[Rfam]
RNA sequence: AUCGGCAUUGCUGGUGAGCGUCCCAAAACUUCGCGGAUGUUCGCAAUGUCUUCGUCGCUUGAGCCUUUUGACCACGGAUGUACUGGCACAAGUGAUAAAGCGACGGACACGAAGGUCGGUGCGGUUUCGCCCCGACCUUUUUUGUU
Numbered sequence: 001a002u003c004g005g006c007a008u009u010g011c012u013g014g015u016g017a018g019c020g021u022c023c024c025a026a027a028a029c030u031u032c033g034c035g036g037a038u039g040u041u042c043g044c045a046a047u048g049u050c051u052u053c054g055u056c057g058c059u060u061g062a063g064c065c066u067u068u069u070g071a072c073c074a075c076g077g078a079u080g081u082a083c084u085g086g087c088a089c090a091a092g093u094g095a096u097a098a099a100g101c102g103a104c105g106g107a108c109a110c111g112a113a114g115g116u117c118g119g120u121g122c123g124g125u126u127u128c129g130c131c132c133c134g135a136c137c138u139u140u141u142u143u144g145u146u
Stems, first nucleotide, its partner, number of pairs: 004050006016042005054104007065092002069088002072086003106145001109142001111140009121130003
RNA: Alphaproteobacterial sRNA ar35
Organism: Pararhizobium antarcticum